[Rfam]
The family of this 114-nucleotide RNA from Rhodococcus triatomae is "SAM (S-adenosyl methionine) riboswitch aptamer". SAM-IV is a mRNA element that regulates gene expression via direct sensing of S-adenosylmethionine (SAM or AdoMet). The source organism's lineage runs through Bacteria, Bacillati, Actinomycetes, Nocardiaceae and Rhodococcus. Rfam 15.1 lists 2,360 matches to the family in 1,305 species. It scores 111 bits against the family's covariance model.
Nucleotides: 114
Base pairs, nucleotide, nucleotide: 001078002077003076004075009038011037012036013035014034015033016032021030022029039065040064041063044061045060046059048056049055081103082102083101084100086099087098088097089096090095
Number, partner (000 for none) and nucleotide at each position: 001078g002077g003076u004075c005000a006000u007000g008000a009038g010000u011037a012036c013035c014034a015033g016032c017000a018000u019000c020000a021030a022029g023000c024000c025000c026000c027000g028000g029022c030021u031000c032016g033015c034014u035013g036012g037011u038009c039065g040064g041063c042000a043000a044061c045060c046059c047000u048056c049055c050000u051000c052000c053000g054000c055049g056048g057000u058000g059046g060045g061044g062000u063041g064040c065039u066000c067000c068000g069000g070000g071000u072000g073000a074000c075004g076003a077002c078001c079000u080000g081103g082102c083101u084100g085000c086099g087098g088097c089096u090095c091000a092000g093000c094000a095090g096089a097088g098087c099086c100084c101083g102082g103081c104000a105000a106000g107000c108000g109000c110000g111000g112000a113000c114000u